[Rfam]
RNA sequence: GACUCUCCAUGACAUUAAAACACUAAAUCCCUGGGAUGUGUUUUAGUUGAUUUUAGUC
Number, nucleotide and partner (000 for none) at each position: 001g058002a057003c056004u000005c000006u000007c000008c000009a000010u000011g000012a000013c000014a047015u046016u045017a044018a043019a042020a041021c040022a039023c038024u000025a000026a000027a000028u036029c035030c034031c000032u000033g000034g030035g029036a028037u000038g023039u022040g021041u020042u019043u018044u017045a016046g015047u014048u000049g000050a000051u000052u000053u000054u000055a000056g003057u002058c001
This 58-nucleotide RNA from Mytilus coruscus belongs to the Rfam family "Selenocysteine insertion sequence 1". On this family, see Walczak et al., RNA 1996: "A novel RNA structural motif in the selenocysteine insertion element of eukaryotic selenoprotein mRNAs". Lineage of the source: Eukaryota > Metazoa > Bilateria > Mytilidae > Mytilus. Rfam 15.1 lists 3,793 matches to the family in 721 species.